The record is a 444-nucleotide part of an RNA from Flavobacterium aquatile, which matches "Bacterial large subunit ribosomal RNA" in Rfam. The base pairs follow the family's consensus structure, which is taken from published work. Lineage of the source: Bacteria > Pseudomonadati > Flavobacteriales > Flavobacteriaceae > Flavobacterium aquatile. Its Rfam clan is "LSU clan".

[Rfam]
RNA sequence: CUCCCCGAAAUGCAUUUAGGUGCAGCGUUGGUCAUAAAGUUAUAUAGAGGUAGAGCUACUGAUUGGAUGCGGGGGCUUCACCGCCUACCAAUUCCUGACAAACUCCGAAUGCUAUAUAAUGUUUACCAACAGUGAGGGCAUGGGUGCUAAGGUCCAUGUCCGAGAGGGAAAGAACCCAGACCAUCAGCUAAGGUCCCCAAAUAUAUGCUAAGUUGAAAAAACGAGGUUUGUCUGCCCAGACAGCUAGGAUGUUGGCUUGGAAGCAGCCAUUCAUUUAAAGAGUGCGUAACAGCUCACUAGUCGAGCGGACGAGCAUGGAUAAUAAUCGGGCAUAAGCAUAUUACCGAAGCUAUGGAUUUAUACGUAAGUAUAAGUGGUAGGGGAGCAUUCUAACAGGGUUGAAGGUGUAUCGUAAGGUAUGCUGGACUGGUUAGAAAAGAAAAU
Numbered sequence: 001c002u003c004c005c006c007g008a009a010a011u012g013c014a015u016u017u018a019g020g021u022g023c024a025g026c027g028u029u030g031g032u033c034a035u036a037a038a039g040u041u042a043u044a045u046a047g048a049g050g051u052a053g054a055g056c057u058a059c060u061g062a063u064u065g066g067a068u069g070c071g072g073g074g075g076c077u078u079c080a081c082c083g084c085c086u087a088c089c090a091a092u093u094c095c096u097g098a099c100a101a102a103c104u105c106c107g108a109a110u111g112c113u114a115u116a117u118a119a120u121g122u123u124u125a126c127c128a129a130c131a132g133u134g135a136g137g138g139c140a141u142g143g144g145u146g147c148u149a150a151g152g153u154c155c156a157u158g159u160c161c162g163a164g165a166g167g168g169a170a171a172g173a174a175c176c177c178a179g180a181c182c183a184u185c186a187g188c189u190a191a192g193g194u195c196c197c198c199a200a201a202u203a204u205a206u207g208c209u210a211a212g213u214u215g216a217a218a219a220a221a222c223g224a225g226g227u228u229u230g231u232c233u234g235c236c237c238a239g240a241c242a243g244c245u246a247g248g249a250u251g252u253u254g255g256c257u258u259g260g261a262a263g264c265a266g267c268c269a270u271u272c273a274u275u276u277a278a279a280g281a282g283u284g285c286g287u288a289a290c291a292g293c294u295c296a297c298u299a300g301u302c303g304a305g306c307g308g309a310c311g312a313g314c315a316u317g318g319a320u321a322a323u324a325a326u327c328g329g330g331c332a333u334a335a336g337c338a339u340a341u342u343a344c345c346g347a348a349g350c351u352a353u354g355g356a357u358u359u360a361u362a363c364g365u366a367a368g369u370a371u372a373a374g375u376g377g378u379a380g381g382g383g384a385g386c387a388u389u390c391u392a393a394c395a396g397g398g399u400u401g402a403a404g405g406u407g408u409a410u411c412g413u414a415a416g417g418u419a420u421g422c423u424g425g426a427c428u429g430g431u432u433a434g435a436a437a438a439g440a441a442a443a444u
Stems, first nucleotide, its partner, number of pairs: 001385006011024005026132001027130006038123001039120009053106001054104002060100002065095003071089002073086004136161010166177003181355004186351003192345003201342001203341006222317002226314010243301005249274003254268003275279001280295001284293002356375008386439001388436007396428002404423008